This 89-nucleotide sequence from Ziziphus jujuba belongs to the Rfam family "Plastid-psbM 3UTR RNA".
[Rfam]
RNA sequence: GCGAUGAUAGUAUGGUAGAAAUAAAGAUUCAUAUUUUUCUUUCUACCAUACUAUCUAGUAUUGUCAUUGUGUUGUAUAGAGUUUACUGU
Numbered sequence: 001g002c003g004a005u006g007a008u009a010g011u012a013u014g015g016u017a018g019a020a021a022u023a024a025a026g027a028u029u030c031a032u033a034u035u036u037u038u039c040u041u042u043c044u045a046c047c048a049u050a051c052u053a054u055c056u057a058g059u060a061u062u063g064u065c066a067u068u069g070u071g072u073u074g075u076a077u078a079g080a081g082u083u084u085a086c087u088g089u
Base pairs, nucleotide, nucleotide: 006055007054008053009052010051011050012049013048014047015046016045017044018043019042020041021040023038024037025036026035027034028033

On this family, see Richter et al., Plant Commun 2023: "Retrograde signaling in plants: A critical review focusing on the GUN pathway and beyond". About the family: Plastid psbM is a non-coding RNA (ncRNA) recognised in plastids. It was found in the three prime untranslated region (3UTR) of psbM gene, its 3UTR location suggests a role in transcript maturation. It is annotated as a cis-regulatory element. A search with the family's covariance model found it, with a score of 67 bits.